[Rfam]
Shown here is a 147-nucleotide RNA sequence from Rhinopithecus bieti, a member of the family "U1 spliceosomal RNA". NCBI's taxonomy places the organism under Eukaryota, Metazoa, Boreoeutheria, Primates, Rhinopithecus. The family's consensus secondary structure is taken from published work. Rfam classes the family as a spliceosomal small nuclear RNA. Rfam 15.1 lists 40,184 matches to the family in 1,499 species. The literature on the family includes a 1994 paper in Nature by Oubridge et al., "Crystal structure at 1.92 A resolution of the RNA-binding domain of the U1A spliceosomal protein complexed with an RNA hairpin".
RNA sequence: ACACUUAUCUGGCAGGGUAGAUACCAUGAUCAUGAAGGUGGUUCCCAGAGUGAGGCUCAUCCAUUGCACUCUGGUUGUGCUGACCCCUGUGAUUUCCUCAAAUGCAGAAUUUUUAGUAGUGAGGGACUGUGUUCGUGCUUUUCCCGU
Number, nucleotide and partner (000 for none) at each position: 001a000002c000003a000004c000005u000006u000007a000008u000009c000010u000011g000012g105013c104014a103015g000016g046017g045018u000019a000020g044021a043022u000023a042024c041025c040026a039027u038028g000029a000030u000031c000032a000033u000034g000035a000036a000037g000038g027039u026040g025041g024042u023043u021044c020045c017046c016047a088048g087049a000050g085051u000052g084053a000054g081055g080056c079057u000058c077059a076060u000061c074062c073063a000064u000065u000066g000067c000068a000069c000070u000071c000072u000073g062074g061075u000076u059077g058078u000079g056080c055081u054082g000083a000084c052085c050086c000087c048088u047089g000090u100091g099092a098093u000094u000095u000096c000097c000098u092099c091100a090101a000102a000103u014104g013105c012106a000107g000108a000109a000110u000111u000112u000113u000114u000115a000116g000117u000118a000119g000120u000121g000122a000123g144124g143125g142126a141127c000128u000129g138130u137131g136132u000133u000134c000135g000136u131137g130138c129139u000140u000141u126142u125143c124144c123145c000146g000147u000